The family of this 144-nucleotide RNA from Mesorhizobium sp. J18 is "Alphaproteobacterial sRNA BjrC1505". The source organism's lineage runs through Bacteria, Pseudomonadati, Pseudomonadota, Hyphomicrobiales and Mesorhizobium. Pairs were carried over by alignment from the consensus structure. On this family, see Madhugiri et al., RNA Biol 2012: "Small RNAs of the Bradyrhizobium/Rhodopseudomonas lineage and their analysis". It scores 72 bits against the family's covariance model.
RNA sequence: AUUGCAGGGAUUAACGGCUUGUUAAGCUUUACGGGGGUUUACUCCAAUUCAUCCAGUGAUCUGGAUUCUUACCGAGUGGCUGGAGCCAUUCUGUUUGACGCCUCCCUGUUAACUCCUGAGAGCCGCCUUCGCGGCUCUUUUUUU
Numbered sequence: 001a002u003u004g005c006a007g008g009g010a011u012u013a014a015c016g017g018c019u020u021g022u023u024a025a026g027c028u029u030u031a032c033g034g035g036g037g038u039u040u041a042c043u044c045c046a047a048u049u050c051a052u053c054c055a056g057u058g059a060u061c062u063g064g065a066u067u068c069u070u071a072c073c074g075a076g077u078g079g080c081u082g083g084a085g086c087c088a089u090u091c092u093g094u095u096u097g098a099c100g101c102c103u104c105c106c107u108g109u110u111a112a113c114u115c116c117u118g119a120g121a122g123c124c125g126c127c128u129u130c131g132c133g134g135c136u137c138u139u140u141u142u143u144u
Base pairs, nucleotide, nucleotide: 001048002047003046004045005017023041024040025039026038027037028036052065053064054063055062074091075090076089077088078087079086097110098109099108100107118139119138120137121136122135123134124133125132126131